[Rfam]
RNA: tpke11
Nucleotides: 075
Base pairs, nucleotide, nucleotide: 003016004015005014017048018047019046020045021044022043023042024041025040027038028037029036
Number, partner (000 for none) and nucleotide at each position: 001000u002000a003016u004015a005014g006000a007000c008000u009000u010000u011000a012000a013000a014005c015004u016003a017048g018047c019046a020045c021044g022043g023042g024041c025040g026000u027038a028037g029036a030000u031000a032000a033000a034000c035000u036029u037028c038027u039000g040025c041024g042023c043022c044021c045020g046019u047018g048017u049000a050000a051000u052000u053000a054000u055000u056000u057000u058000u059000a060000a061000a062000u063000c064000a065000g066000g067000u068000a069000g070000a071000g072000u073000a074000a075000g